About this RNA
Shown here is an 83-nucleotide sequence from Petromyzon marinus, a member of the family "mir-17 microRNA precursor family". The source organism's lineage runs through Eukaryota, Bilateria, Deuterostomia, Chordata and Petromyzon. Rfam 15.1 lists 4,687 matches to the family in 648 species. It is one of the family's seed sequences. Rfam's curators write: This family represents the microRNA (miRNA) precursor mir-17, family, which includes mir-20, mir-91, and mir-103. miRNAs are transcribed as ~70nt precursors (modelled here) and subsequently processed by the Dicer enzyme to give a ~22nt product. In this case the mature sequence comes from the 3' arm of the precursor. The extents of the hairpin precursors are not generally known and are estimated based on hairpin prediction.
RNA sequence: CUUGCUUGUGUAAAGGUGCAUUUAGUGCAGAUAGUGGCAUAGCUGGCAUUCUACUGCUCUAUGUGCUCCUUCUUUCACAAGAA
Dot-bracket structure: .....(...(.(.(((.((((.(((.((.(.(((................))).))).))).)))).)))..).)...)....
Numbered sequence: 001c002u003u004g005c006u007u008g009u010g011u012a013a014a015g016g017u018g019c020a021u022u023u024a025g026u027g028c029a030g031a032u033a034g035u036g037g038c039a040u041a042g043c044u045g046g047c048a049u050u051c052u053a054c055u056g057c058u059c060u061a062u063g064u065g066c067u068c069c070u071u072c073u074u075u076c077a078c079a080a081g082a083a
Stems, first nucleotide, its partner, number of pairs: 006079001010075001012073001014070003018066004023061003027057002030055001032053003